[Rfam]
RNA sequence: CCGCGCCCGCUGGGAGAGAUCGGACCGCGUCCGGCGCCGAAGGAGCAACCGCCCCGGAAACUCUCAGGCAAAAGGACCGGCGGGCCAUG
Numbered sequence: 001c002c003g004c005g006c007c008c009g010c011u012g013g014g015a016g017a018g019a020u021c022g023g024a025c026c027g028c029g030u031c032c033g034g035c036g037c038c039g040a041a042g043g044a045g046c047a048a049c050c051g052c053c054c055c056g057g058a059a060a061c062u063c064u065c066a067g068g069c070a071a072a073a074g075g076a077c078c079g080g081c082g083g084g085c086c087a088u089g
Stems, first nucleotide, its partner, number of pairs: 006084008020034004036069003039065002043063003049057002
Glycine riboswitch aptamer: an 89-nucleotide RNA sequence from Oceanicella actignis. Rfam links the family to the GO term glycine biosynthetic process. NCBI's taxonomy places the organism under Bacteria, Pseudomonadati, Pseudomonadota, Rhodobacterales, Oceanicella.